[Rfam]
Nucleotides: 094
Base pairs, nucleotide, nucleotide: 005019006018007017008016010033011032012031013030014029035081036080037079038078039077042058043057044056045055046054
Number, partner (000 for none) and nucleotide at each position: 001000a002000a003000u004000u005019g006018u007017c008016u009000g010033c011032c012031u013030u014029g015000c016008a017007g018006a019005c020000g021000u022000u023000u024000a025000a026000a027000u028000g029014c030013a031012a032011g033010g034000g035081c036080g037079u038078c039077c040000c041000g042058g043057c044056g045055c046054a047000g048000a049000g050000u051000g052000g053000c054046u055045g056044c057043g058042c059000g060000u061000u062000u063000a064000a065000a066000a067000g068000u069000u070000a071000a072000a073000u074000c075000u076000a077039g078038g079037g080036c081035g082000g083000g084000a085000a086000a087000g088000g089000a090000a091000u092000a093000u094000a
GP20-a RNA: a 94-nucleotide sequence. The base pairs follow the family's consensus structure, which is taken from published work.